[Rfam]
RNA sequence: GGCGUAAAGGGUGCGCAGGCGGCCCGUCAAGUCUGGUGUGAAAGACCGCAGCUUAACUGCGGACACGCAUUGGAAACUGGCAGGCUUGAGUACUGGAGGGGGAACUGGAAUUCCAGGUGUAGGGGUGAAAUCUGUAGAUAUCUGGAAGAACACCGGUGGCGAAGGCGAGUUCCUGGCCAUGUACUGACGCUGAGGCACGAAAGCGUGGGGAGCGAACAGGAUUAGAUACCCUGGUAGUCCACGCCGUAAACGAUGUACACUAGAUGUUGGCCCUUGCCGGGUCAGUGUCGGAGCAAACGCGUUAAGUGUACCGCCUGGGGAGUAUGCCCGCAAGGGUGAAACUCAAAGGAAU
Numbered sequence: 001g002g003c004g005u006a007a008a009g010g011g012u013g014c015g016c017a018g019g020c021g022g023c024c025c026g027u028c029a030a031g032u033c034u035g036g037u038g039u040g041a042a043a044g045a046c047c048g049c050a051g052c053u054u055a056a057c058u059g060c061g062g063a064c065a066c067g068c069a070u071u072g073g074a075a076a077c078u079g080g081c082a083g084g085c086u087u088g089a090g091u092a093c094u095g096g097a098g099g100g101g102g103a104a105c106u107g108g109a110a111u112u113c114c115a116g117g118u119g120u121a122g123g124g125g126u127g128a129a130a131u132c133u134g135u136a137g138a139u140a141u142c143u144g145g146a147a148g149a150a151c152a153c154c155g156g157u158g159g160c161g162a163a164g165g166c167g168a169g170u171u172c173c174u175g176g177c178c179a180u181g182u183a184c185u186g187a188c189g190c191u192g193a194g195g196c197a198c199g200a201a202a203g204c205g206u207g208g209g210g211a212g213c214g215a216a217c218a219g220g221a222u223u224a225g226a227u228a229c230c231c232u233g234g235u236a237g238u239c240c241a242c243g244c245c246g247u248a249a250a251c252g253a254u255g256u257a258c259a260c261u262a263g264a265u266g267u268u269g270g271c272c273c274u275u276g277c278c279g280g281g282u283c284a285g286u287g288u289c290g291g292a293g294c295a296a297a298c299g300c301g302u303u304a305a306g307u308g309u310a311c312c313g314c315c316u317g318g319g320g321a322g323u324a325u326g327c328c329c330g331c332a333a334g335g336g337u338g339a340a341a342c343u344c345a346a347a348g349g350a351a352u
Base pairs, nucleotide, nucleotide: 001315002314003313009312011198012197013196014195016192018191019190020189022085023084024083026081027080028079030078031077032074033073034072035071036070037069038068039067040066046062047061048060049059050058051057089185090184091183094179095178096177100174101173102172103171104170105169106168107151111147112146113145114144115143116142117141118140122133123132124131159166160165203244204243205242206241207240208239212238213237217233218232219231220230255311256310257309258308259307260306263289264288265287266286267285268284269283270282271281272280273279293300294299317344318343319342326337327336328335329334
RNA: Bacterial small subunit ribosomal RNA, nucleotides 563 to 914
Organism: Spirochaeta africana